[Rfam]
Shown here is a 73-nucleotide RNA sequence from Sparus aurata, a member of the family "mir-21 microRNA precursor family". Gene Ontology terms of the family: miRNA-mediated post-transcriptional gene silencing and RISC complex. Pairs were carried over by alignment from the consensus structure, which was predicted with RNAalifold. It scores 74 bits against the family's covariance model. Lineage of the source: Eukaryota > Metazoa > Craniata > Acanthomorphata > Sparus.
RNA sequence: CAUCAGCUAGCUUAUCAGACUGGUGUUGGCUGUUUCAUUAGCGUGGCAACAGCGGUCUGUAAGCUGGCUGAAG
Numbered sequence: 001c002a003u004c005a006g007c008u009a010g011c012u013u014a015u016c017a018g019a020c021u022g023g024u025g026u027u028g029g030c031u032g033u034u035u036c037a038u039u040a041g042c043g044u045g046g047c048a049a050c051a052g053c054g055g056u057c058u059g060u061a062a063g064c065u066g067g068c069u070g071a072a073g
Stems, first nucleotide, its partner, number of pairs: 008066008018057005024051005030045001